[Rfam]
RNA sequence: UGGUGACAUCCUCUUACCAAUAUCAAUGGGGGUACUCGAUUACGCUGUGGGUAUAGAUGUACCUUAGACGCUUGUCGUCAGUGGUGUGAUGUGAGGAUGGGUUAAAUGCCCU
Numbered sequence: 001u002g003g004u005g006a007c008a009u010c011c012u013c014u015u016a017c018c019a020a021u022a023u024c025a026a027u028g029g030g031g032g033u034a035c036u037c038g039a040u041u042a043c044g045c046u047g048u049g050g051g052u053a054u055a056g057a058u059g060u061a062c063c064u065u066a067g068a069c070g071c072u073u074g075u076c077g078u079c080a081g082u083g084g085u086g087u088g089a090u091g092u093g094a095g096g097a098u099g100g101g102u103u104a105a106a107u108g109c110c111c112u
Base pairs, nucleotide, nucleotide: 001019002018003017004016008033009032010031011030012029013028035095036094037093038092039090040089041088042087043086044085045084046083049064050063051062052061053060054059067079068078069077070076099111100110101109102108
RNA: epsC RNA
Organism: Chengkuizengella marina